[Rfam]
Rfam assigns this 102-nucleotide sequence from Flavobacterium terrae to the family "SAM riboswitch aptamer (S box leader)". About the family: The SAM riboswitch is found upstream of a number of genes which code for proteins involved in methionine or cysteine biosynthesis in Gram-positive bacteria. The organism belongs to Flavobacterium, within Bacteria. The family's consensus secondary structure is taken from published work.
RNA sequence: AAGUUAUCACGAAAGGCAGAGGGACUAGACCCAAUGAAGCCUUAGCAACCCUACUCUUGUAGAAGGUGCUACAUUCUACUCCAUUUUGGAGAAAGAUAACAA
Numbered sequence: 001a002a003g004u005u006a007u008c009a010c011g012a013a014a015g016g017c018a019g020a021g022g023g024a025c026u027a028g029a030c031c032c033a034a035u036g037a038a039g040c041c042u043u044a045g046c047a048a049c050c051c052u053a054c055u056c057u058u059g060u061a062g063a064a065g066g067u068g069c070u071a072c073a074u075u076c077u078a079c080u081c082c083a084u085u086u087u088g089g090a091g092a093a094a095g096a097u098a099a100c101a102a
Stems, first nucleotide, its partner, number of pairs: 003100006013043005021032003026078004044070004049066002051062004074094001079091005